[Rfam]
RNA sequence: GGUUAGUCUGAGUGCAGUGGUGUUUACAACUAACUGAUCACAACCACUUACAGAUCUUUUUUAUUUCUUCUCCGUUCUCACUGCUUCAGUUGGCUAGCCAUUA
Numbered sequence: 001g002g003u004u005a006g007u008c009u010g011a012g013u014g015c016a017g018u019g020g021u022g023u024u025u026a027c028a029a030c031u032a033a034c035u036g037a038u039c040a041c042a043a044c045c046a047c048u049u050a051c052a053g054a055u056c057u058u059u060u061u062u063a064u065u066u067c068u069u070c071u072c073c074g075u076u077c078u079c080a081c082u083g084c085u086u087c088a089g090u091u092g093g094c095u096a097g098c099c100a101u102u103a
Stems, first nucleotide, its partner, number of pairs: 001099008010091002014087001016082005022077001028065002032061002
This 103-nucleotide RNA sequence from Callithrix jacchus belongs to the Rfam family "Y RNA". Rfam classes the family as a non-coding RNA gene. Rfam describes the family as follows. Y RNAs are components of the Ro ribonucleoprotein particle (Ro RNP), in association with Ro60 and La proteins. The Y RNAs and Ro60 and La proteins are well conserved, but the function of the Ro RNP is not known. In humans the RNA component can be one of four small RNAs -- hY1, hY3, hY4 and hY5. These small RNAs are predicted to fold into a conserved secondary structure containing three stem structures. Lineage of the source: Eukaryota > Vertebrata > Dipnotetrapodomorpha > Primates > Callithrix. It scores 56 bits against the family's covariance model. For this family Rfam cites "Conserved features of Y RNAs: a comparison of experimentally derived secondary structures" (Teunissen et al., Nucleic Acids Res, 2000).